The family of this 116-nucleotide RNA sequence from Polaromonas sp. Pch-P is "Glycine riboswitch aptamer". Rfam links the family to the GO term glycine biosynthetic process.
RNA sequence: UCCUCGGGGUCAGGAGAGAGUUUUCCUCAGCGAAAACCGCCGAAGGCGCACGAGCACCCUGGGGCACCCCCCUUGAGUCGCACUGAACGCUCAGGCAAAAGGACUGGCAACCGCCC
Numbered sequence: 001u002c003c004u005c006g007g008g009g010u011c012a013g014g015a016g017a018g019a020g021u022u023u024u025c026c027u028c029a030g031c032g033a034a035a036a037c038c039g040c041c042g043a044a045g046g047c048g049c050a051c052g053a054g055c056a057c058c059c060u061g062g063g064g065c066a067c068c069c070c071c072c073u074u075g076a077g078u079c080g081c082a083c084u085g086a087a088c089g090c091u092c093a094g095g096c097a098a099a100a101g102g103a104c105u106g107g108c109a110a111c112c113g114c115c116c
Stems, first nucleotide, its partner, number of pairs: 006111001009108005020037004039096003042092002046090003052083001